[Rfam]
RNA sequence: GAAUAACUUAAAGCGCCUGGACUAAUCAUGAUGAGGAUUAGUUGACGAGGAGGAGGUUUAUCGAAGUAUCGGCGGAUGCCUCCCGGUUGAUGACGCACAACCGAAGUUUCUUCUUUAAAACACUUUGGCAACAAGGUGAACAAAGAGAAGAAAAUGCGCAUAC
Numbered sequence: 001g002a003a004u005a006a007c008u009u010a011a012a013g014c015g016c017c018u019g020g021a022c023u024a025a026u027c028a029u030g031a032u033g034a035g036g037a038u039u040a041g042u043u044g045a046c047g048a049g050g051a052g053g054a055g056g057u058u059u060a061u062c063g064a065a066g067u068a069u070c071g072g073c074g075g076a077u078g079c080c081u082c083c084c085g086g087u088u089g090a091u092g093a094c095g096c097a098c099a100a101c102c103g104a105a106g107u108u109u110c111u112u113c114u115u116u117a118a119a120a121c122a123c124u125u126u127g128g129c130a131a132c133a134a135g136g137u138g139a140a141c142a143a144a145g146a147g148a149a150g151a152a153a154a155u156g157c158g159c160a161u162a163c
Base pairs, nucleotide, nucleotide: 020043021042022041023040024039025038026037027036029034052083053082054081055080056079061072062071063070064069084103085102086101087100088099089098107153108152109151110150111149112148113147121138122137123136124135125134126133127132

The family of this 163-nucleotide sequence from Bacillus sp. cl95 is "glmS glucosamine-6-phosphate activated ribozyme aptamer". Pairs were carried over by alignment from the consensus structure, which is taken from published work. Taxonomically the source falls in Bacillus (Bacteria, Bacillati, Bacillota, Caryophanales). For this family Rfam cites "Control of gene expression by a natural metabolite-responsive ribozyme" (Winkler et al., Nature, 2004). Rfam classes the family as a riboswitch.